[Rfam]
RNA sequence: AACUCAUCGAGACCAGCCGAGGGACAGGCCCGACGACGCUGGGGCAACCGCCAGAUGCUUCAUUUAGCCUUUGGAAUGGUGCCAACUCCUGCGGAAUUUCGCAUUCCGACAGAUGAGAG
Numbered sequence: 001a002a003c004u005c006a007u008c009g010a011g012a013c014c015a016g017c018c019g020a021g022g023g024a025c026a027g028g029c030c031c032g033a034c035g036a037c038g039c040u041g042g043g044g045c046a047a048c049c050g051c052c053a054g055a056u057g058c059u060u061c062a063u064u065u066a067g068c069c070u071u072u073g074g075a076a077u078g079g080u081g082c083c084a085a086c087u088c089c090u091g092c093g094g095a096a097u098u099u100c101g102c103a104u105u106c107c108g109a110c111a112g113a114u115g116a117g118a119g
Base pairs, nucleotide, nucleotide: 003117004116005115006114007113008112013042014041015040016039017038021031022030023029025091026090027089028088043083044082045081046080048079049078051074052073053072054071055070087111092108093107094106095105096104097103
Dot-bracket structure: ..((((((....(((((...(((.[[[[)))......)))))((((.((.(((((..............)))))...))))))...(]]]]((((((.....))))))..)))))))..
A member of the RNA family "SAM riboswitch aptamer (S box leader)" from Asticcacaulis sp. YBE204, 119 nucleotides long. Gene Ontology term of the family: regulation of gene expression.